[Rfam]
RNA sequence: UAAAAGGGUCGGUUGGCUAAAUAUGCCACUCUCACCCUUGUUUGGUGAGUGCUGUUAUGGCUAUCAAGACAUAUGGCCGACAUAAUUUGUGACAACUUAAUAAGGUUGGCUCCUUUGGCCGAGCCAAAUAU
Numbered sequence: 001u002a003a004a005a006g007g008g009u010c011g012g013u014u015g016g017c018u019a020a021a022u023a024u025g026c027c028a029c030u031c032u033c034a035c036c037c038u039u040g041u042u043u044g045g046u047g048a049g050u051g052c053u054g055u056u057a058u059g060g061c062u063a064u065c066a067a068g069a070c071a072u073a074u075g076g077c078c079g080a081c082a083u084a085a086u087u088u089g090u091g092a093c094a095a096c097u098u099a100a101u102a103a104g105g106u107u108g109g110c111u112c113c114u115u116u117g118g119c120c121g122a123g124c125c126a127a128a129u130a131u
Base pairs, nucleotide, nucleotide: 008081009080010079011078012077014028015027016026017025029051031049032048033047034046035045036044052076053075054074056073057072058071059070099129101127104125105124106123107122108120109119110118111117

Notes: Shown here is a 131-nucleotide RNA from Vitis vinifera, a member of the family "U11 spliceosomal RNA". Rfam 15.1 lists 2,595 matches to the family in 1,202 species. For this family Rfam cites "Additional low-abundance human small nuclear ribonucleoproteins: U11, U12, etc" (Montzka and Steitz, Proc Natl Acad Sci U S A, 1988).